A member of the RNA family "Small nucleolar RNA snoR14" from Arabis nemorensis, 84 nucleotides long.
[Rfam]
RNA sequence: UCGAGGUGAUGAUAAAAAUUUCACAAGUCUGUCAAUCCACUGAACUUUUGUGAUGUGAUUGUGAUCUCGACAGGUUCUGAUCGA
Numbered sequence: 001u002c003g004a005g006g007u008g009a010u011g012a013u014a015a016a017a018a019u020u021u022c023a024c025a026a027g028u029c030u031g032u033c034a035a036u037c038c039a040c041u042g043a044a045c046u047u048u049u050g051u052g053a054u055g056u057g058a059u060u061g062u063g064a065u066c067u068c069g070a071c072a073g074g075u076u077c078u079g080a081u082c083g084a
Stems, first nucleotide, its partner, number of pairs: 001084004
By type it is a C/D-box small nucleolar RNA.